[Rfam]
RNA sequence: GUCAGCUACCCAAAGCUGAAGCUUUUGGGCUUGCAAAGUCCGCGCGCUGACCAGUCUCAGCCAGGGCCGUAAGGCCACCGGGCUACGUUGGGUCAGAAUAUAUAGGCACUCCGGGGUGCUUGCCAGCCCCGGACUCUGCGGCAGGUGAUUAAACAGGCUUAAGGGGUUUAAACCGGUGUCAUCUGCAUACAAAACCUGACCAUAACAUUGACGAGGCAGACAUUAC
Numbered sequence: 001g002u003c004a005g006c007u008a009c010c011c012a013a014a015g016c017u018g019a020a021g022c023u024u025u026u027g028g029g030c031u032u033g034c035a036a037a038g039u040c041c042g043c044g045c046g047c048u049g050a051c052c053a054g055u056c057u058c059a060g061c062c063a064g065g066g067c068c069g070u071a072a073g074g075c076c077a078c079c080g081g082g083c084u085a086c087g088u089u090g091g092g093u094c095a096g097a098a099u100a101u102a103u104a105g106g107c108a109c110u111c112c113g114g115g116g117u118g119c120u121u122g123c124c125a126g127c128c129c130c131g132g133a134c135u136c137u138g139c140g141g142c143a144g145g146u147g148a149u150u151a152a153a154c155a156g157g158c159u160u161a162a163g164g165g166g167u168u169u170a171a172a173c174c175g176g177u178g179u180c181a182u183c184u185g186c187a188u189a190c191a192a193a194a195c196c197u198g199a200c201c202a203u204a205a206c207a208u209u210g211a212c213g214a215g216g217c218a219g220a221c222a223u224u225a226c
Stems, first nucleotide, its partner, number of pairs: 001051006010029002012026002015022002030038002054212003059084004087206004091201006106139002110133008120220002122217003141186009153177002156174002159171004